This 69-nucleotide sequence from Lipotes vexillifer belongs to the Rfam family "tRNA". Pairs were carried over by alignment from the consensus structure, which is taken from published work. Rfam links the family to the GO term triplet codon-amino acid adaptor activity. The source organism's lineage runs through Eukaryota, Euteleostomi, Dipnotetrapodomorpha, Theria and Lipotes. From the family's description: Transfer RNA (tRNA) molecules are approximately 80 nucleotides in length.
[Rfam]
RNA sequence: GAGGAUUUAGCUUAACUAAAGUGUUUGAUUUGCAUUCAAUUGAUGUAGGAUAGAGUCUUGCAAUCCUUA
Numbered sequence: 001g002a003g004g005a006u007u008u009a010g011c012u013u014a015a016c017u018a019a020a021g022u023g024u025u026u027g028a029u030u031u032g033c034a035u036u037c038a039a040u041u042g043a044u045g046u047a048g049g050a051u052a053g054a055g056u057c058u059u060g061c062a063a064u065c066c067u068u069a
Stems, first nucleotide, its partner, number of pairs: 001068007010022004025039004045061005